[Rfam]
RNA sequence: CUCCACUACCCGUUCGACACAAUACUCUGCUGCAGUAUUGUGCCAAGACCUGCUGUGUCAACGGCCGGUGGAG
Numbered sequence: 001c002u003c004c005a006c007u008a009c010c011c012g013u014u015c016g017a018c019a020c021a022a023u024a025c026u027c028u029g030c031u032g033c034a035g036u037a038u039u040g041u042g043c044c045a046a047g048a049c050c051u052g053c054u055g056u057g058u059c060a061a062c063g064g065c066c067g068g069u070g071g072a073g
Stems, first nucleotide, its partner, number of pairs: 001073007010064005021039006047059003
RNA: bZIP non canonical Hac1/Xbp1 intron